RNA sequence: AUGGCUGAUGAGGUAGUUUAUAAAGCUGCGAGUGCAAUUAUUCAUCGCAGAUUUUAGGCUAUCUCGACAGCAUC
Number, nucleotide and partner (000 for none) at each position: 001a000002u000003g000004g071005c070006u000007g000008a000009u000010g065011a064012g063013g062014u061015a060016g059017u058018u000019u000020a000021u000022a054023a053024a052025g000026c000027u049028g048029c047030g000031a000032g000033u000034g000035c000036a000037a000038u000039u000040a000041u000042u000043c000044a000045u000046c000047g029048c028049a027050g000051a000052u024053u023054u022055u000056a000057g000058g017059c016060u015061a014062u013063c012064u011065c010066g000067a000068c000069a000070g005071c004072a000073u000074c000
RNA: mir-84 microRNA precursor family